This 161-nucleotide RNA from Macleaya cordata belongs to the Rfam family "U1 spliceosomal RNA".
Clan: U1 clan.
The base pairs follow the family's consensus structure, which is taken from published work.
For this family Rfam cites "The uRNA database" (Zwieb, Nucleic Acids Res, 1997).
Taxonomically the source falls in Macleaya (Eukaryota, Embryophyta, Spermatophyta, Papaveraceae).
U1 is a small nuclear RNA (snRNA) component of the spliceosome (involved in pre-mRNA splicing). Its 5' end forms complementary base pairs with the 5' splice junction, thus defining the 5' donor site of an intron.
RNA sequence: AUACUUACCUUGACGGGAUCAAUGGAUGAUCAAGAAGGUCUAUGGCCUAGGUUAGCAACCUCCAUUGCACUUUGGAGGGGUGCUCGCCUAAGAUCUUCCCAAGUCGAAGAGUCUACGUCAUAAUUUGUGUUAGAGGGGGAACGCGUUCGCGCGAUCUUUUG
Numbered sequence: 001a002u003a004c005u006u007a008c009c010u011u012g013a014c015g016g017g018a019u020c021a022a023u024g025g026a027u028g029a030u031c032a033a034g035a036a037g038g039u040c041u042a043u044g045g046c047c048u049a050g051g052u053u054a055g056c057a058a059c060c061u062c063c064a065u066u067g068c069a070c071u072u073u074g075g076a077g078g079g080g081u082g083c084u085c086g087c088c089u090a091a092g093a094u095c096u097u098c099c100c101a102a103g104u105c106g107a108a109g110a111g112u113c114u115a116c117g118u119c120a121u122a123a124u125u126u127g128u129g130u131u132a133g134a135g136g137g138g139g140a141a142c143g144c145g146u147u148c149g150c151g152c153g154a155u156c157u158u159u160u161g
Stems, first nucleotide, its partner, number of pairs: 012119004016048002019045003023042005049089003053086001055083003059079003062075002091114003094110003098106001134160005140155001142153004